The record is a 67-nucleotide RNA sequence from Auanema sp. JU1783, which matches "mir-71 microRNA precursor family" in Rfam. A search with the family's covariance model found it, with a score of 62 bits.
[Rfam]
RNA sequence: CGAUGGUGAAAGACAUGGGUAGUGAGACGCGUUUAAGCCGUAUCACUAUUCUGUUUUUCGCCUUCUG
Numbered sequence: 001c002g003a004u005g006g007u008g009a010a011a012g013a014c015a016u017g018g019g020u021a022g023u024g025a026g027a028c029g030c031g032u033u034u035a036a037g038c039c040g041u042a043u044c045a046c047u048a049u050u051c052u053g054u055u056u057u058u059c060g061c062c063u064u065c066u067g
Base pairs, nucleotide, nucleotide: 008059009058010057011056012055013054014053015052017051018050019049021047022046023045024044025043027041028040029039
Its family is annotated with miRNA-mediated post-transcriptional gene silencing and RISC complex in the Gene Ontology. The family has 36 seed sequences and 372 matches in Rfam 15.1. On this family, see Li et al., BMC Genomics 2009: "Direct sequencing and expression analysis of a large number of miRNAs in Aedes aegypti and a multi-species survey of novel mosquito miRNAs".